[Rfam]
RNA: MIR2619 microRNA precursor family
Organism: Medicago truncatula
RNA sequence: AAACCGCCCAUAAGUUUUGCAACUGUAGCAGUUUUGAUCCCCAAGGCCAAUUUUUGGUAAAAAAAAACAUAAAAAAUAACACGUGACACCUUACUUAGGGUGCCACGUCAGCGUAGACCGAGUCAAAAUUGACAUUGGGGUCAAAACUGCCACAAAUGCAAAACUUAGGAGGCGGUUU
Numbered sequence: 001a002a003a004c005c006g007c008c009c010a011u012a013a014g015u016u017u018u019g020c021a022a023c024u025g026u027a028g029c030a031g032u033u034u035u036g037a038u039c040c041c042c043a044a045g046g047c048c049a050a051u052u053u054u055u056g057g058u059a060a061a062a063a064a065a066a067a068c069a070u071a072a073a074a075a076a077u078a079a080c081a082c083g084u085g086a087c088a089c090c091u092u093a094c095u096u097a098g099g100g101u102g103c104c105a106c107g108u109c110a111g112c113g114u115a116g117a118c119c120g121a122g123u124c125a126a127a128a129u130u131g132a133c134a135u136u137g138g139g140g141u142c143a144a145a146a147c148u149g150c151c152a153c154a155a156a157u158g159c160a161a162a163a164c165u166u167a168g169g170a171g172g173c174g175g176u177u178u
Stems, first nucleotide, its partner, number of pairs: 001178002004175005011167011024154003028150010039140006081108002084105002087102004